[Rfam]
RNA sequence: AACACGCUCCUUAGAUCCACCUCUGGGGAGGUUCUCCGGUCCGGUUCUGUUGUGUUCUCUCUCUGGGAGCAGCAGGAUCCACCCGGAGACUCCCAGCAGCUUCACGGCUGUACAGUUGGAGGUGCUUGAGUCAUUGGCGUGUGAGAUCAGUCCACCUGCUUACCCAGAAUCCUCUCUGCCCUGAUCCUUCACAGGAAAACACCAGGGCAGAACAGCUGGAGAGCAGACAAA
Numbered sequence: 001a002a003c004a005c006g007c008u009c010c011u012u013a014g015a016u017c018c019a020c021c022u023c024u025g026g027g028g029a030g031g032u033u034c035u036c037c038g039g040u041c042c043g044g045u046u047c048u049g050u051u052g053u054g055u056u057c058u059c060u061c062u063c064u065g066g067g068a069g070c071a072g073c074a075g076g077a078u079c080c081a082c083c084c085g086g087a088g089a090c091u092c093c094c095a096g097c098a099g100c101u102u103c104a105c106g107g108c109u110g111u112a113c114a115g116u117u118g119g120a121g122g123u124g125c126u127u128g129a130g131u132c133a134u135u136g137g138c139g140u141g142u143g144a145g146a147u148c149a150g151u152c153c154a155c156c157u158g159c160u161u162a163c164c165c166a167g168a169a170u171c172c173u174c175u176c177u178g179c180c181c182u183g184a185u186c187c188u189u190c191a192c193a194g195g196a197a198a199a200c201a202c203c204a205g206g207g208c209a210g211a212a213c214a215g216c217u218g219g220a221g222a223g224c225a226g227a228c229a230a231a
Base pairs, nucleotide, nucleotide: 002142003141004140005139006138007137008136010130011129012128013127014126018124019123020122021121022120023119024118025117026094027093028092029091030090035087036086037085038084043079046076047075048074049073052070056068057067058066059065096111097110098109099108100107101106156226157225158224159223160222163219175211176210177209178208179207180206181205182204183202185197187195

Background: This 231-nucleotide RNA from Carassius auratus belongs to the Rfam family "Small nucleolar RNA SNORA53". It scores 102 bits against the family's covariance model. Its family is annotated with nucleolus and RNA processing in the Gene Ontology. The base pairs follow the family's consensus structure, which was predicted with RNAalifold. From the family's description: The snoRNA ACA53 belongs to the H/ACA family of pseudouridylation guide snoRNAs.